[Rfam]
RNA sequence: AAAGUUUAAAUAGACGCCUUUCGUAUAUCCUCGAAAAUAUGGUUCGAAAGUUUCUACCGGGGCACCGUAAAUGCCCUGACUAUGAAGGCAGAUAAUCUUAUG
Numbered sequence: 001a002a003a004g005u006u007u008a009a010a011u012a013g014a015c016g017c018c019u020u021u022c023g024u025a026u027a028u029c030c031u032c033g034a035a036a037a038u039a040u041g042g043u044u045c046g047a048a049a050g051u052u053u054c055u056a057c058c059g060g061g062g063c064a065c066c067g068u069a070a071a072u073g074c075c076c077u078g079a080c081u082a083u084g085a086a087g088g089c090a091g092a093u094a095a096u097c098u099u100a101u102g
Stems, first nucleotide, its partner, number of pairs: 018088008031047005058078007
RNA: Purine riboswitch aptamer
Organism: Oceanobacillus halophilus